[Rfam]
Background:
Bacterial RNase P class A: a 383-nucleotide RNA sequence from Dechloromonas aromatica. The source organism's lineage runs through Bacteria, Pseudomonadati, Azonexaceae, Dechloromonas and Dechloromonas aromatica (nom. nud.). Rfam's curators put it in the seed alignment.
RNA sequence: AAAGUCGGCCAGGCAAUCGCUGGGCACGUAAGUGCCGGGAGGAAAGUCCGGGCUCCAUUGGGCGGGAUGCCAGUUAACGGCUGGGUGCUAUACGGUCGCAAGACCUAAGGCAACGGAAAGUGCAACAGAGAAUAGACCGCCGAUGGCGUUGUAAGACGCACAGGUAAGGGUGAAACGGCGAGGUAAGAGCUCACCGCGUCCACGGUAACGGCGGACGGCACGGUAAACCCCAUCCGGAGCAAGACCAAAUAGGGAAGCUGAGGCGUGGCCCGCGCUGCUUCCGGGUAGGUUGCUUGAGCCUGUCGGUGACGGCAGGCCUAGAGGAAUGAUUGCCGAACCUCGCAAGAGGGGAACAAAACCCGGCUUAUCGGCCGGCUUUCCAA
Number, nucleotide and partner (000 for none) at each position: 001a379002a378003a377004g376005u375006c374007g373008g372009c371010c370011a368012g334013g333014c332015a331016a330017u329018c328019g000020c039021u038022g000023g036024g035025c034026a033027c032028g000029u000030a000031a000032g027033u026034g025035c024036c023037g000038g021039g020040a000041g000042g000043a000044a366045a365046g364047u000048c363049c362050g361051g360052g359053c239054u238055c237056c236057a000058u000059u000060g271061g270062g269063c268064g000065g235066g234067a233068u232069g231070c084071c083072a082073g081074u080075u000076a000077a000078c000079g000080g074081c073082u072083g071084g070085g114086u112087g111088c110089u109090a000091u000092a000093c000094g000095g000096u000097c000098g000099c000100a000101a000102g000103a000104c000105c000106u000107a000108a000109g089110g088111c087112a086113a000114c085115g230116g229117a000118a000119a000120g228121u227122g224123c223124a000125a000126c000127a000128g000129a000130g000131a000132a000133u000134a000135g000136a000137c169138c168139g165140c164141c163142g000143a000144u162145g161146g159147c158148g157149u156150u000151g000152u000153a000154a000155g000156a149157c148158g147159c146160a000161c145162a144163g141164g140165u139166a000167a000168g138169g137170g000171u000172g000173a000174a000175a000176c000177g195178g194179c000180g192181a191182g190183g000184u000185a000186a000187g000188a000189g000190c182191u181192c180193a000194c178195c177196g219197c217198g216199u215200c214201c213202a000203c210204g209205g000206u000207a000208a000209c204210g203211g000212c000213g201214g200215a199216c198217g197218g000219c196220a000221c000222g000223g123224u122225a000226a000227a121228c120229c116230c115231c069232a068233u067234c066235c065236g056237g055238a054239g053240c000241a000242a000243g291244a290245c289246c288247a000248a000249a000250u000251a000252g000253g282254g281255a280256a279257g278258c277259u000260g000261a000262g276263g275264c274265g273266u272267g000268g063269c062270c061271c060272g266273c265274g264275c263276u262277g258278c257279u256280u255281c254282c253283g000284g000285g000286u000287a000288g246289g245290u244291u243292g000293c000294u000295u000296g000297a000298g317299c316300c315301u314302g313303u312304c311305g310306g000307u000308g000309a000310c305311g304312g303313c302314a301315g300316g299317c298318c000319u000320a000321g000322a000323g000324g000325a000326a000327u000328g018329a017330u016331u015332g014333c013334c012335g000336a000337a000338c000339c000340u000341c000342g000343c000344a000345a000346g000347a000348g000349g000350g000351g000352a000353a000354c000355a000356a000357a000358a000359c052360c051361c050362g049363g048364c046365u045366u044367a000368u011369c000370g010371g009372c008373c007374g006375g005376c004377u003378u002379u001380c000381c000382a000383a000